[Rfam]
RNA: Iron response element I
RNA sequence: CUGUCUCCUGCUCCAACAGUGUUUGAAUGGGACAG
Numbered sequence: 001c002u003g004u005c006u007c008c009u010g011c012u013c014c015a016a017c018a019g020u021g022u023u024u025g026a027a028u029g030g031g032a033c034a035g
Base pairs, nucleotide, nucleotide: 001035002034003033004032006031007030008029010028012027014025015024016023017021
Dot-bracket structure: ((((.(((.(.(.((((...).))).)))))))))